[Rfam]
Nucleotides: 171
Stems, first nucleotide, its partner, number of pairs: 006166006016081005021075004030066007085114011115141006122135004143156005
Number, partner (000 for none) and nucleotide at each position: 001000a002000g003000g004000g005000c006166c007165a008164g009163a010162a011161g012000a013000g014000g015000c016081g017080c018079g019078u020077u021075u022074a023073c024072u025000a026000g027000g028000u029000a030066g031065u032064u033063a034062a035061u036060g037000g038000g039000a040000a041000g042000a043000g044000a045000u046000c047000a048000a049000a050000c051000u052000c053000u054000u055000a056000u057000g058000a059000a060036c061035a062034u063033u064032a065031a066030c067000c068000a069000g070000g071000g072024a073023g074022u075021a076000u077020a078019a079018c080017g081016c082000c083000g084000a085114g086113a087112u088111a089110a090109a091108u092107a093106u094105a095104u096000a097000u098000u099000u100000g101000a102000u103000g104095a105094u106093g107092u108091a109090u110089u111088u112087g113086u114085c115141g116140g117139u118138u119137g120136u121000u122135c123134a124133g125132g126000c127000u128000g129000a130000a131000u132125c133124c134123u135122g136120g137119c138118a139117a140116c141115u142000g143156u144155c145154a146153c147152c148000g149000u150000a151000a152147g153146g154145u155144g156143g157000a158000g159000a160000g161011c162010u163009u164008c165007u166006g167000g168000c169000c170000u171000u
The record is a 171-nucleotide sequence from Thalassotalea sp. PP2-459, which matches "Lysine riboswitch aptamer" in Rfam. A search with the family's covariance model found it, with a score of 93 bits.